[Rfam]
RNA sequence: GCAAAGCGCGUGAGGGGUGGCAGCGGAAAUCUUUUUUGUAGCGGGCUUUGGCGCUACAAAAAAAUUGAAGCGAACGACCCGACCGGGC
Number, nucleotide and partner (000 for none) at each position: 001g000002c000003a000004a000005a000006g000007c000008g000009c000010g000011u000012g000013a000014g080015g079016g078017g000018u076019g075020g000021c000022a000023g071024c070025g000026g000027a000028a066029a065030u064031c000032u000033u000034u061035u060036u059037u058038g057039u056040a055041g054042c053043g052044g000045g000046c000047u000048u000049u000050g000051g000052c043053g042054c041055u040056a039057c038058a037059a036060a035061a034062a000063a000064a030065u029066u028067g000068a000069a000070g024071c023072g000073a000074a000075c019076g018077a000078c016079c015080c014081g000082a000083c000084c000085g000086g000087g000088c000
Rfam assigns this 88-nucleotide RNA to the family "Flavo-1 RNA". The match comes from Rfam's covariance-model search (46 bits).